[Rfam]
RNA sequence: CGAACCCGCGCGGGAGAGCCGGAACGACCGUCACCACGGUCGCGACCGGCGCCGAAGGAGCAAGUCCUCCCCGGAAUCUCUCAGGCCCCCCUACCGCCCGGGCGAG
Dot-bracket structure: .....(((.((((.....((((.......................)))).(((((..(((.................))))).))).......)))).))).....

The record is a 106-nucleotide sequence from Kitasatospora griseola, which matches "Glycine riboswitch aptamer" in Rfam. A search with the family's covariance model found it, with a score of 48 bits. The pairing is the family consensus, mapped onto this sequence.